[Rfam]
RNA sequence: UCGCAGUUCCUUCUACUCGGAUCGUCCGGCACGUUCCUGCCGGUGGAAAGGAAGUCGAU
Numbered sequence: 001u002c003g004c005a006g007u008u009c010c011u012u013c014u015a016c017u018c019g020g021a022u023c024g025u026c027c028g029g030c031a032c033g034u035u036c037c038u039g040c041c042g043g044u045g046g047a048a049a050g051g052a053a054g055u056c057g058a059u
Stems, first nucleotide, its partner, number of pairs: 009050001011048005026043006
msiK RNA: a 59-nucleotide RNA from Actinoplanes campanulatus. A search with the family's covariance model found it, with a score of 49 bits. The family's consensus secondary structure is taken from published work. The source organism's lineage runs through Bacteria, Bacillati, Actinomycetota, Micromonosporales and Actinoplanes.